[Rfam]
RNA sequence: ACCGUGUUCUUAACUUCUGUAUGGUAGCUGAGAUACAUGUAUUUCACUUACUAUAUAGUAGGUAAGUACACGGUUU
Numbered sequence: 001a002c003c004g005u006g007u008u009c010u011u012a013a014c015u016u017c018u019g020u021a022u023g024g025u026a027g028c029u030g031a032g033a034u035a036c037a038u039g040u041a042u043u044u045c046a047c048u049u050a051c052u053a054u055a056u057a058g059u060a061g062g063u064a065a066g067u068a069c070a071c072g073g074u075u076u
Base pairs, nucleotide, nucleotide: 001074002073003072004071005070006069007068009066010065011064012063014061015060017058018057019056020055021054022053023052024051025050026049027048029046030045031044033042034041035040